[Rfam]
RNA sequence: ACUAUGAUCCCGCGGGAUCCUCUACUCGUAUACGUUUGGACGGCCAAACCAAUAGCGA
Number, nucleotide and partner (000 for none) at each position: 001a000002c000003u000004a000005u000006g019007a018008u017009c016010c015011c000012g000013c000014g000015g010016g009017a008018u007019c006020c000021u000022c000023u000024a000025c000026u058027c057028g056029u055030a000031u000032a000033c000034g049035u048036u047037u046038g045039g044040a000041c000042g000043g000044c039045c038046a037047a036048a035049c034050c000051a000052a000053u000054a000055g029056c028057g027058a026
RNA: MDR-NUDIX RNA